[Rfam]
RNA: eL15-Euryarchaeota ribosomal protein leader
RNA sequence: CCUGUUCGACAGGUCGGAAUGUGGCCGGACGGCCGGCUGAACCAUCCA
Numbered sequence: 001c002c003u004g005u006u007c008g009a010c011a012g013g014u015c016g017g018a019a020u021g022u023g024g025c026c027g028g029a030c031g032g033c034c035g036g037c038u039g040a041a042c043c044a045u046c047c048a
Base pairs, nucleotide, nucleotide: 001013002012003011004010005009016043017042023038024037025036026035027034